[Rfam]
RNA sequence: GGGUUGAGGAUGGCGCCCCCGGGUCGGGCAGUGGUCUUUUUUGUUCUAACCCUAACUGGCAAGGGCGUAGGUGCUGUGCUUUUGUUCCCCGCGCGUUGUUUUUCUCGCUGACUUUCAGCGGGCGGGAAAAGCCCUGGCCUACCGCCGUCUACCGAUAGUUUGGAGCAAACAAAAAAAUGUCAGCCGCUGGCCGCUCACCCCUCCCGGGAACCUGUGGUGGCUCGCCCGCCCAGCCCCGCGCCCCGCCUGGAGGCCGCGGUCGGCCUGGGGCUUCUCCGGAGGUUCCCAUUGCCGCCGCGAAGAGUUAGGCUCUGUCAGCCGCGGGUCCUGCGGGAACCAAGGGCGAGGCUUAGGCCUCCUGAACGCAGGGAGAGAAAUGGAGCGAUUCCCCGAGUACGUGUGCUUCCCUGAGUUGUGGGAUGUGCGUCCGGGACUCAGCUCCGACAGGU
Numbered sequence: 001g002g003g004u005u006g007a008g009g010a011u012g013g014c015g016c017c018c019c020c021g022g023g024u025c026g027g028g029c030a031g032u033g034g035u036c037u038u039u040u041u042u043g044u045u046c047u048a049a050c051c052c053u054a055a056c057u058g059g060c061a062a063g064g065g066c067g068u069a070g071g072u073g074c075u076g077u078g079c080u081u082u083u084g085u086u087c088c089c090c091g092c093g094c095g096u097u098g099u100u101u102u103u104c105u106c107g108c109u110g111a112c113u114u115u116c117a118g119c120g121g122g123c124g125g126g127a128a129a130a131g132c133c134c135u136g137g138c139c140u141a142c143c144g145c146c147g148u149c150u151a152c153c154g155a156u157a158g159u160u161u162g163g164a165g166c167a168a169a170c171a172a173a174a175a176a177a178u179g180u181c182a183g184c185c186g187c188u189g190g191c192c193g194c195u196c197a198c199c200c201c202u203c204c205c206g207g208g209a210a211c212c213u214g215u216g217g218u219g220g221c222u223c224g225c226c227c228g229c230c231c232a233g234c235c236c237c238g239c240g241c242c243c244c245g246c247c248u249g250g251a252g253g254c255c256g257c258g259g260u261c262g263g264c265c266u267g268g269g270g271c272u273u274c275u276c277c278g279g280a281g282g283u284u285c286c287c288a289u290u291g292c293c294g295c296c297g298c299g300a301a302g303a304g305u306u307a308g309g310c311u312c313u314g315u316c317a318g319c320c321g322c323g324g325g326u327c328c329u330g331c332g333g334g335a336a337c338c339a340a341g342g343g344c345g346a347g348g349c350u351u352a353g354g355c356c357u358c359c360u361g362a363a364c365g366c367a368g369g370g371a372g373a374g375a376a377a378u379g380g381a382g383c384g385a386u387u388c389c390c391c392g393a394g395u396a397c398g399u400g401u402g403c404u405u406c407c408c409u410g411a412g413u414u415g416u417g418g419g420a421u422g423u424g425c426g427u428c429c430g431g432g433a434c435u436c437a438g439c440u441c442c443g444a445c446a447g448g449u
Base pairs, nucleotide, nucleotide: 018208019207020206021205022204023203026200027199028198031195033192034191035190036189078132079131080130081129082128090124091123092122094120095119096118097117098116107184108183109182110181111180112179113177114176115175211369212368213367214366215365216364224349225348226347227345228344229343230342231341235334236333237332238331239330240329242325243324244323245322246321255299256298257297258296259295261294262293263292264291267287268286269285301313302312303311304310380441381440382439383438384435386433387432388431389430398427399426400425401424402423405420406419407418408417
A member of the RNA family "Vertebrate telomerase RNA", 449 nucleotides long. The base pairs follow the family's consensus structure, which is taken from published work. The family is grouped with related families in Rfam's "Telomerase clan". For this family Rfam cites "Analysis of the structure of human telomerase RNA in vivo" (Antal et al., Nucleic Acids Res, 2002). Rfam's curators write: Telomerase is a ribonucleoprotein reverse transcriptase that synthesises telomeric DNA. Telomerase RNAs differ greatly in sequence and structure between vertebrates, ciliates and yeasts, but they share a 5' pseudoknot structure close to the template sequence. Vertebrate telomerase RNAs have a 3' H/ACA snoRNA-like domain.